The family of this 294-nucleotide sequence from Helicobacter heilmannii is "5' ureB small RNA". For this family Rfam cites "Helicobacter pylori 5'ureB-sRNA, a cis-encoded antisense small RNA, negatively regulates ureAB expression by transcription termination" (Wen et al., J Bacteriol, 2013). Rfam's curators put it in the seed alignment. The organism belongs to Helicobacter, within Bacteria.
RNA sequence: CUGUGGGGAUUUGUUGGGGAGAAAUGAAGUGGAUGUGUGUGUCGAUCCCGCCAGCUGUUACAAUCAGUCCCUCACCCGCGAGCGCUUCGGUGGCAGGCCCCACGCAUAGAUUGUUGUCUACACCAUCUUGCAUGUCUUUGUUGCCAGCCUUGCCAAUGCCCGCAAUCUUGCCAUCCUUAAUGCCAAUAUCGGCUUUGUAAAUGCCGGUAUAAUCCACGAUCAGAGCAUUGGUGAUGACCAAAUCCAACUCAUAGGAGCUAGGGCUGUUAGUUUGCCCCAUCCCAUCUCGAAUGG
Numbered sequence: 001c002u003g004u005g006g007g008g009a010u011u012u013g014u015u016g017g018g019g020a021g022a023a024a025u026g027a028a029g030u031g032g033a034u035g036u037g038u039g040u041g042u043c044g045a046u047c048c049c050g051c052c053a054g055c056u057g058u059u060a061c062a063a064u065c066a067g068u069c070c071c072u073c074a075c076c077c078g079c080g081a082g083c084g085c086u087u088c089g090g091u092g093g094c095a096g097g098c099c100c101c102a103c104g105c106a107u108a109g110a111u112u113g114u115u116g117u118c119u120a121c122a123c124c125a126u127c128u129u130g131c132a133u134g135u136c137u138u139u140g141u142u143g144c145c146a147g148c149c150u151u152g153c154c155a156a157u158g159c160c161c162g163c164a165a166u167c168u169u170g171c172c173a174u175c176c177u178u179a180a181u182g183c184c185a186a187u188a189u190c191g192g193c194u195u196u197g198u199a200a201a202u203g204c205c206g207g208u209a210u211a212a213u214c215c216a217c218g219a220u221c222a223g224a225g226c227a228u229u230g231g232u233g234a235u236g237a238c239c240a241a242a243u244c245c246a247a248c249u250c251a252u253a254g255g256a257g258c259u260a261g262g263g264c265u266g267u268u269a270g271u272u273u274g275c276c277c278c279a280u281c282c283c284a285u286c287u288c289g290a291a292u293g294g
Stems, first nucleotide, its partner, number of pairs: 001294003006288004011165004016160002018076002021073002030053003034050002037048001039046002057069001059067001078153001081150002084148002090144007097136001099134001104131002108128004113123002170276001172274002177270006183263002192226006206215002229260003237252001242249001